[Rfam]
RNA sequence: GACAGAGUAGGUAAAGCACGUCAAGUGUUAAAGGAUGGGAAGUUGCCUUUAAACGAAAGAUUUAUUUAUGUAUAAGUCUGCGAUACUUUACCGCGUCCGCUGUU
Numbered sequence: 001g002a003c004a005g006a007g008u009a010g011g012u013a014a015a016g017c018a019c020g021u022c023a024a025g026u027g028u029u030a031a032a033g034g035a036u037g038g039g040a041a042g043u044u045g046c047c048u049u050u051a052a053a054c055g056a057a058a059g060a061u062u063u064a065u066u067u068a069u070g071u072a073u074a075a076g077u078c079u080g081c082g083a084u085a086c087u088u089u090a091c092c093g094c095g096u097c098c099g100c101u102g103u104u
Base pairs, nucleotide, nucleotide: 001104002103003102004101005100010092011091012090013089014088015087016086018084019082020081021080025054026053028052029051030050031049032048033047034046038098039097040096042094058079059078060077061076062075063074064073065072
Dot-bracket structure: (((((....(((((((.((((...((.(((((((...[[[.[...)))))))))...((((((((......))))))))))).).))))))).].]]].)))))
Shown here is a 104-nucleotide RNA sequence from Proteiniborus ethanoligenes, a member of the family "THF (Tetrahydrofolate) riboswitch aptamer". From the family's description: Tetrahydrofolate (THF) riboswitch was first reported for Ames et al. as an RNA motif in 5' untranslated (5'-UTR)regions of folate transport and biosynthesis genes in Firmicutes genomes. Gene Ontology term of the family: tetrahydrofolate metabolic process.